RNA sequence: CGAGUUGGCCAGACAAUCGCUGCUUAAUCGUUGUAUCUGCUGUGUAAGCGGCAGAUAGACAGAUUGAGGGGAGGAAAGUCCGGGCUCCAUUGAGCAGGGUGCCAGGUAACACCUGGGGGGCGCAAGCCCACGACAAGUGCAGCAGAGAGAAGACCGCCGAUGGCUAUUCUUAUUUAUAAGAGCAGCACAGGUAAGGCUGAAAGGGUGCGGUAAGAGCGCACCGGGCGGCUGGUAACAGUUCGCAGCAGGGUAAACUCCACCCGGAGCAAGACCAAAUAGGGUUUCAUUACUUUAAAUAGUUUACGCGUGGCUCGCGCGGAAACCGGGUAGGUUGCUUGAGCAUGUGAGCGAUUGCAUGCCUAGACGAAUGAUUGUCGCUUUUAGUAUUUAUAUUAGAAGUAACAGAACCCGGCUUACACGGCCAACUCACUAA
Number, nucleotide and partner (000 for none) at each position: 001c000002g428003a427004g426005u425006u424007g423008g422009c421010c420011a000012g376013a375014c374015a373016a372017u371018c370019g000020c071021u070022g000023c068024u067025u066026a065027a064028u063029c000030g000031u000032u000033g000034u000035a000036u000037c000038u000039g000040c000041u000042g000043u000044g000045u000046a000047a000048g000049c000050g000051g000052c000053a000054g000055a000056u000057a000058g000059a000060c000061a000062g000063a028064u027065u026066g025067a024068g023069g000070g021071g020072a000073g000074g000075a000076a415077a414078g413079u000080c412081c411082g410083g409084g408085c266086u265087c264088c263089a000090u000091u000092g313093a312094g311095c310096a000097g262098g261099g260100u259101g258102c116103c115104a114105g113106g112107u000108a000109a000110c000111a000112c106113c105114u104115g103116g102117g131118g129119g128120g127121c126122g000123c000124a000125a000126g121127c120128c119129c118130a000131c117132g257133a256134c000135a000136a000137g255138u254139g251140c250141a000142g000143c000144a000145g000146a000147g000148a000149g000150a000151a000152g000153a000154c196155c195156g192157c191158c190159g000160a000161u187162g186163g000164c000165u000166a000167u000168u000169c000170u000171u000172a000173u000174u000175u000176a000177u000178a000179a000180g000181a000182g000183c000184a000185g000186c162187a161188c000189a000190g158191g157192u156193a000194a000195g155196g154197c000198u000199g000200a000201a000202a000203g000204g222205g221206u220207g219208c218209g217210g000211u000212a000213a000214g000215a000216g000217c209218g208219c207220a206221c205222c204223g246224g000225g243226c242227g241228g240229c238230u237231g236232g000233u000234a000235a000236c231237a230238g229239u000240u228241c227242g226243c225244a000245g000246c223247a000248g000249g000250g140251u139252a000253a000254a138255c137256u133257c132258c101259a100260c099261c098262c097263g088264g087265a086266g085267c000268a000269a000270g333271a332272c331273c330274a000275a000276a000277u000278a000279g000280g324281g323282u322283u321284u320285c319286a000287u000288u000289a000290c000291u000292u000293u000294a000295a000296a000297u000298a000299g000300u000301u000302u000303a000304c318305g317306c316307g315308u314309g000310g095311c094312u093313c092314g308315c307316g306317c305318g304319g285320a284321a283322a282323c281324c280325g000326g000327g000328u000329a000330g273331g272332u271333u270334g000335c000336u000337u000338g000339a000340g359341c358342a357343u356344g355345u354346g353347a352348g000349c000350g000351a000352u347353u346354g345355c344356a343357u342358g341359c340360c000361u000362a000363g000364a000365c000366g000367a000368a000369u000370g018371a017372u016373u015374g014375u013376c012377g000378c000379u000380u000381u000382u000383a000384g000385u000386a000387u000388u000389u000390a000391u000392a000393u000394u000395a000396g000397a000398a000399g000400u000401a000402a000403c000404a000405g000406a000407a000408c084409c083410c082411g081412g080413c078414u077415u076416a000417c000418a000419c000420g010421g009422c008423c007424a006425a005426c004427u003428c002429a000430c000431u000432a000433a000
The record is a 433-nucleotide RNA sequence from Thalassotalea sp. ND16A, which matches "Bacterial RNase P class A" in Rfam.
The family's consensus secondary structure is taken from published work.
Lineage of the source: Bacteria > Pseudomonadati > Pseudomonadota > Gammaproteobacteria > Thalassotalea.
Rfam classes the family as a ribozyme.